[Rfam]
RNA sequence: UUUACCGUCGACACAAGUAAAUCUCGUGCGGCUUGUGUGCCAUUAAGCCGUACGAGAUUUGCUUCUGUCAAUGGUAAA
Dot-bracket structure: ....((((.((((.(((((((((((((((((((((........))))))))))))))))))))).)))).))))....
The family of this 78-nucleotide RNA from Spodoptera exigua is "mir-2767 microRNA precursor family". The source organism's lineage runs through Eukaryota, Metazoa, Pancrustacea, Eumetabola and Spodoptera. The match comes from Rfam's covariance-model search (70 bits).